Makes More Granules Regulator RNA (mmgR): a 76-nucleotide RNA from Sphingomonas lycopersici.

RNA sequence: GGGUCGGGCCUUUCAGGCAUCCUCUCCUAAAAACUUUUAAGGCCGGUCGCGAGACCGGCCUUUCUUUUUGGCUGCG
Numbered sequence: 001g002g003g004u005c006g007g008g009c010c011u012u013u014c015a016g017g018c019a020u021c022c023u024c025u026c027c028u029a030a031a032a033a034c035u036u037u038u039a040a041g042g043c044c045g046g047u048c049g050c051g052a053g054a055c056c057g058g059c060c061u062u063u064c065u066u067u068u069u070g071g072c073u074g075c076g
Base pairs, nucleotide, nucleotide: 008018009017010016011015040061041060042059043058044057045056046055047054048053

The pairing is the family consensus, mapped onto this sequence. Its family is annotated with DNA-templated transcription, termination, protein binding and response to nitrogen compound in the Gene Ontology. The family's RNA type in Rfam is small RNA. About the family: SuhB later renamed mmgR (makes more granules regulator) was a putative non-coding RNA found multiple times in the Agrobacterium tumefaciens genome and related alpha-proteobacteria. Other non-coding RNAs uncovered in the same analysis include: speF, ybhL, metA, and serC.Several studies inSinorhizobium meliloti showed that suhB element is indeed a non-coding RNA:firstly it was detected on Northern blot and called Sm8RNA, secondly in an RNAseq study referred to as SmelC689.The mutant phenotype's (strain lacking the small RNA) cytoplasm contains higher content of polyhydroxybutyrate (PBH)storage granules than wild type strain. The sRNA is required to limit the PBH intracellular accumulation when the nitrogen-fixing Sinorhizobium meliloti is under condition of surplus carbon in relation to nitrogen. It has been renamed to mmgR. Further study confirmed that mmgR fine-tunes the regulation of PBH storage.Northern blot confirmed the expression of the sRNA in other rhizobia species.